[Rfam]
RNA sequence: UCAGUCCUUGUCUAGGUGAGCAAAAUGUUCAAUGAUCGUAUAGUGAGAACAUUGUUGCUAACACCCUAUUUACACCAAUGCAUCCUACACAUUCAGUAGAAUGCAAUUUUUGUAACC
Numbered sequence: 001u002c003a004g005u006c007c008u009u010g011u012c013u014a015g016g017u018g019a020g021c022a023a024a025a026u027g028u029u030c031a032a033u034g035a036u037c038g039u040a041u042a043g044u045g046a047g048a049a050c051a052u053u054g055u056u057g058c059u060a061a062c063a064c065c066c067u068a069u070u071u072a073c074a075c076c077a078a079u080g081c082a083u084c085c086u087a088c089a090c091a092u093u094c095a096g097u098a099g100a101a102u103g104c105a106a107u108u109u110u111u112g113u114a115a116c117c
Stems, first nucleotide, its partner, number of pairs: 005019002008016002020058004024053007037043001080104004085099004
The family of this 117-nucleotide RNA sequence from Coptotermes formosanus is "U4atac minor spliceosomal RNA". U4atac is an essential component of the minor U12-type spliceosome complex which is required for removal of the rarer class of eukaryotic introns (AT-AC, U12-type). The organism belongs to Coptotermes, within Eukaryota. The family's consensus secondary structure is taken from published work. It is annotated as a spliceosomal small nuclear RNA. For this family Rfam cites "Domains of human U4atac snRNA required for U12-dependent splicing in vivo" (Shukla et al., Nucleic Acids Res, 2002).